The family of this 108-nucleotide RNA sequence from Nocardioides sp. J9 is "TPP riboswitch aptamer (THI element)". For this family Rfam cites "Structure of the eukaryotic thiamine pyrophosphate riboswitch with its regulatory ligand" (Thore et al., Science, 2006). Gene Ontology term of the family: thiamine pyrophosphate binding. The match comes from Rfam's covariance-model search (66 bits).
RNA sequence: GCGGUCAGACAGGGGAGCCCCGAGCGGGGCUGAGAGUGCGGGACCGCCCGCAGACCCUCCGAACCUGAUCCGGUUAGCACCGGCGAAGGGAGUCACACGUGCGCGUAC
Numbered sequence: 001g002c003g004g005u006c007a008g009a010c011a012g013g014g015g016a017g018c019c020c021c022g023a024g025c026g027g028g029g030c031u032g033a034g035a036g037u038g039c040g041g042g043a044c045c046g047c048c049c050g051c052a053g054a055c056c057c058u059c060c061g062a063a064c065c066u067g068a069u070c071c072g073g074u075u076a077g078c079a080c081c082g083g084c085g086a087a088g089g090g091a092g093u094c095a096c097a098c099g100u101g102c103g104c105g106u107a108c
Stems, first nucleotide, its partner, number of pairs: 008094003011058004017030005037052005064089003070083004